RNA: Mammalian CPEB3 ribozyme
RNA sequence: AUUAGAUCAGUGGGAGCCAUAGCAGAAGCAUUCAUGUUGCAGCCCUUGUCAGGUAAUACCUGUGAAUUAUGCU
Numbered sequence: 001a002u003u004a005g006a007u008c009a010g011u012g013g014g015a016g017c018c019a020u021a022g023c024a025g026a027a028g029c030a031u032u033c034a035u036g037u038u039g040c041a042g043c044c045c046u047u048g049u050c051a052g053g054u055a056a057u058a059c060c061u062g063u064g065a066a067u068u069a070u071g072c073u
Base pairs, nucleotide, nucleotide: 013046014045016043017042021073022072023071024070026068027067028040029039030038050062051061052060053059054058